[Rfam]
A member of the RNA family "ffh sRNA" from Cereibacter ovatus, 52 nucleotides long.
RNA sequence: GCGAGCAGGGAUCGCCACCCAUCAGCGCAGUGCGCCCAUGGGUGACGUUGUG
Numbered sequence: 001g002c003g004a005g006c007a008g009g010g011a012u013c014g015c016c017a018c019c020c021a022u023c024a025g026c027g028c029a030g031u032g033c034g035c036c037c038a039u040g041g042g043u044g045a046c047g048u049u050g051u052g
Stems, first nucleotide, its partner, number of pairs: 016044007025035004

The organism belongs to Cereibacter, within Bacteria.